[Rfam]
RNA sequence: GGAAAUCUUCAGGGCAAGGUGCGAAAACGAUGGUUUUCAAUUCCUGACCGGCGGUAAAGUCCGCGAGCCUUCGGGCCGAACUGGUGAGAUUCCAGUACCGACAGUAUAGUCUGGAUGAAAGAAGAAGCGA
Numbered sequence: 001g002g003a004a005a006u007c008u009u010c011a012g013g014g015c016a017a018g019g020u021g022c023g024a025a026a027a028c029g030a031u032g033g034u035u036u037u038c039a040a041u042u043c044c045u046g047a048c049c050g051g052c053g054g055u056a057a058a059g060u061c062c063g064c065g066a067g068c069c070u071u072c073g074g075g076c077c078g079a080a081c082u083g084g085u086g087a088g089a090u091u092c093c094a095g096u097a098c099c100g101a102c103a104g105u106a107u108a109g110u111c112u113g114g115a116u117g118a119a120a121g122a123a124g125a126a127g128c129g130a
Base pairs, nucleotide, nucleotide: 006125007124008123009122010121017045018044019043047110048109049100050099051064052063053062054061059098060097067076068075069074080096081095082094083093084092102113103112104111
Source information: A member of the RNA family "FMN riboswitch aptamer (RFN element)" from Pseudobutyrivibrio ruminis, 130 nucleotides long. The base pairs follow the family's consensus structure, which is taken from published work. For this family Rfam cites "A conserved RNA structure element involved in the regulation of bacterial riboflavin synthesis genes" (Gelfand et al., Trends Genet, 1999). It scores 96 bits against the family's covariance model. The source organism's lineage runs through Bacteria, Bacillota, Clostridia, Lachnospirales and Pseudobutyrivibrio.